A member of the RNA family "small nucleolar RNA snR35" from Jimgerdemannia flammicorona, 168 nucleotides long. The source organism's lineage runs through Eukaryota, Fungi, Mucoromycota, Endogonales and Jimgerdemannia. The family's consensus secondary structure was predicted with RNAalifold. The family is grouped with related families in Rfam's "SNORA13 clan".

[Rfam]
RNA sequence: CCUGUGCGGCGUUUACCUCAAAGCUGUUUCCGUGUUGCUCACAGAUUGUACUCUCCCAUCGAUUUGUUUACGAGCGUCAAAAGUUCAGCUGAGAGCCGUGGACUUCUUAGCACCCAUUCUUCUUGCCUCGCUUUCUGCGCUUGGAGAGGGUCGGUGGUUCGUAUAUAU
Numbered sequence: 001c002c003u004g005u006g007c008g009g010c011g012u013u014u015a016c017c018u019c020a021a022a023g024c025u026g027u028u029u030c031c032g033u034g035u036u037g038c039u040c041a042c043a044g045a046u047u048g049u050a051c052u053c054u055c056c057c058a059u060c061g062a063u064u065u066g067u068u069u070a071c072g073a074g075c076g077u078c079a080a081a082a083g084u085u086c087a088g089c090u091g092a093g094a095g096c097c098g099u100g101g102a103c104u105u106c107u108u109a110g111c112a113c114c115c116a117u118u119c120u121u122c123u124u125g126c127c128u129c130g131c132u133u134u135c136u137g138c139g140c141u142u143g144g145a146g147a148g149g150g151u152c153g154g155u156g157g158u159u160c161g162u163a164u165a166u167a168u
Stems, first nucleotide, its partner, number of pairs: 022090005037075004045063004098162006117148006126139001